[Rfam]
RNA sequence: GAGGCGGUAUCCGUCCGGAACCGCACUCCGCACGCAUCAGUAGAUUGAUCGAUCGAAUACGACGAACCGUUCGCUUGAGAACGCGCACUCUGCUCUGAGCCGUUAAGGACCGAGACAGAAGG
Numbered sequence: 001g002a003g004g005c006g007g008u009a010u011c012c013g014u015c016c017g018g019a020a021c022c023g024c025a026c027u028c029c030g031c032a033c034g035c036a037u038c039a040g041u042a043g044a045u046u047g048a049u050c051g052a053u054c055g056a057a058u059a060c061g062a063c064g065a066a067c068c069g070u071u072c073g074c075u076u077g078a079g080a081a082c083g084c085g086c087a088c089u090c091u092g093c094u095c096u097g098a099g100c101c102g103u104u105a106a107g108g109a110c111c112g113a114g115a116c117a118g119a120a121g122g
Stems, first nucleotide, its partner, number of pairs: 001028003004024005010019002090118003093114003097110001100108002
pan motif: a 122-nucleotide sequence from Paenibacillus darwinianus. The base pairs follow the family's consensus structure, which is taken from published work. Lineage of the source: Bacteria > Bacillati > Bacillota > Caryophanales > Paenibacillus.